[Rfam]
RNA sequence: GCACCUGAUCCACCAGUGAUCCACCAGCAGCAUUGGGGAACCGGGGAACCACCACCCUGGGGUGAAUCGGGCCGCACUCCGGCUCGUAGGAGACCUUCCUGCUCCGAACCCGUCAGCUAACCCGGUAGGCGAGAAGGAAGGAAAGG
Numbered sequence: 001g002c003a004c005c006u007g008a009u010c011c012a013c014c015a016g017u018g019a020u021c022c023a024c025c026a027g028c029a030g031c032a033u034u035g036g037g038g039a040a041c042c043g044g045g046g047a048a049c050c051a052c053c054a055c056c057c058u059g060g061g062g063u064g065a066a067u068c069g070g071g072c073c074g075c076a077c078u079c080c081g082g083c084u085c086g087u088a089g090g091a092g093a094c095c096u097u098c099c100u101g102c103u104c105c106g107a108a109c110c111c112g113u114c115a116g117c118u119a120a121c122c123c124g125g126u127a128g129g130c131g132a133g134a135a136g137g138a139a140g141g142a143a144a145g146g
Base pairs, nucleotide, nucleotide: 002131004129005128009039010038011037040126041125042124043123044122045121050059051058060111061110062109068086069085070084071083089105090104091103092102

The family of this 146-nucleotide sequence from Streptomyces sp. ISL-11 is "c-di-AMP riboswitch aptamer (ydaO/yuaA leader)". The match comes from Rfam's covariance-model search (82 bits). The base pairs follow the family's consensus structure. From the family's description: This family represents a conserved RNA structure found upstream of the ydaO and yuaA genes in Bacillus subtilis and related genes in other bacteria.